About this RNA:
The family of this 77-nucleotide RNA is "Small nucleolar RNA SNORD81". The sequence is in the family's curated seed alignment. The family is grouped with related families in Rfam's "SNORD26 clan". Rfam classes the family as a C/D-box small nucleolar RNA. A reference for the family is Smith and Steitz (1998), "Classification of gas5 as a multi-small-nucleolar-RNA (snoRNA) host gene and a member of the 5'-terminal oligopyrimidine gene family reveals common features of snoRNA host genes", Mol Cell Biol.
RNA sequence: CAGGACACAUGAUGAUCUCACCCCAACUUGGACUCUCUCACUGAUUACUUGAUGACAGUAAAAGACGUGAUAUUCUG
Number, nucleotide and partner (000 for none) at each position: 001c077002a076003g075004g074005a073006c000007a071008c000009a000010u000011g000012a000013u000014g000015a000016u000017c000018u000019c000020a000021c000022c000023c000024c000025a000026a000027c000028u000029u000030g000031g000032a000033c000034u000035c000036u000037c000038u000039c000040a000041c000042u000043g000044a000045u000046u000047a000048c000049u000050u000051g000052a000053u000054g000055a000056c000057a000058g000059u000060a000061a000062a000063a000064g000065a000066c000067g000068u000069g000070a000071u007072a000073u005074u004075c003076u002077g001